[Rfam]
RNA sequence: GAUCUAUGAUGAGAAUUUAUAUACAUCUGAUUCUAAAUGUGAUGUAUAUCACCAUUUUAGCUCUAGAAUUACUCUGAGAUCUG
Numbered sequence: 001g002a003u004c005u006a007u008g009a010u011g012a013g014a015a016u017u018u019a020u021a022u023a024c025a026u027c028u029g030a031u032u033c034u035a036a037a038u039g040u041g042a043u044g045u046a047u048a049u050c051a052c053c054a055u056u057u058u059a060g061c062u063c064u065a066g067a068a069u070u071a072c073u074c075u076g077a078g079a080u081c082u083g
Base pairs, nucleotide, nucleotide: 001081002080003079004078